[Rfam]
RNA sequence: AAGUGUUUACAGCUCUUUUGCUAUUUGUCUAGCAGGUUCUCACUGAAUGGGAGCCCCU
Numbered sequence: 001a002a003g004u005g006u007u008u009a010c011a012g013c014u015c016u017u018u019u020g021c022u023a024u025u026u027g028u029c030u031a032g033c034a035g036g037u038u039c040u041c042a043c044u045g046a047a048u049g050g051g052a053g054c055c056c057c058u
Stems, first nucleotide, its partner, number of pairs: 035055008
RNA: U7 small nuclear RNA
Organism: Hymenochirus boettgeri